RNA sequence: GGCGAUAAACUGCGGCGUGCAAUAGGCGCAGCGGACCCGGGGGCAGUACCCGGCGGCUCCACCACCUCUUCCGUUCGUUGCGGGGGAAAUGACGGGGCCGAACCAGGAUCGACGUGUGCUGAAAAGCGCUGUUUUCGCCCGGGCUGAGUAACCCGCAAAUAGGCUCACAACACACAAGUGCCAACGACAACGAAGCACUUGCUCUCGCUGCGUAA
Number, nucleotide and partner (000 for none) at each position: 001g139002g138003c137004g136005a135006u000007a000008a000009a000010c000011u000012g000013c000014g000015g129016c128017g127018u126019g000020c000021a000022a000023u000024a000025g000026g000027c118028g117029c116030a000031g115032c114033g113034g000035a000036c000037c053038c052039g051040g050041g049042g000043g000044c000045a000046g000047u000048a000049c041050c040051c039052g038053g037054c100055g099056g098057c097058u096059c095060c094061a000062c000063c000064a000065c000066c000067u000068c000069u000070u000071c000072c000073g000074u000075u000076c000077g000078u000079u000080g000081c000082g000083g000084g000085g000086g000087a000088a000089a000090u000091g000092a000093c000094g060095g059096g058097g057098c056099c055100g054101a000102a000103c000104c000105a000106g000107g000108a000109u000110c000111g000112a000113c033114g032115u031116g029117u028118g027119c000120u000121g000122a000123a000124a000125a000126g018127c017128g016129c015130u000131g000132u000133u000134u000135u005136c004137g003138c002139c001140c155141g154142g153143g152144c000145u000146g000147a000148g000149u000150a000151a000152c143153c142154c141155g140156c000157a000158a000159a000160u000161a000162g000163g000164c000165u000166c000167a000168c000169a000170a000171c000172a000173c000174a000175c000176a000177a000178g000179u000180g000181c000182c000183a000184a000185c000186g000187a000188c000189a000190a000191c000192g000193a000194a000195g000196c000197a000198c000199u000200u000201g000202c000203u000204c000205u000206c000207g000208c000209u000210g000211c000212g000213u000214a000215a000
RNA: permuted transfer-messenger RNA
Organism: Tsuneonella litorea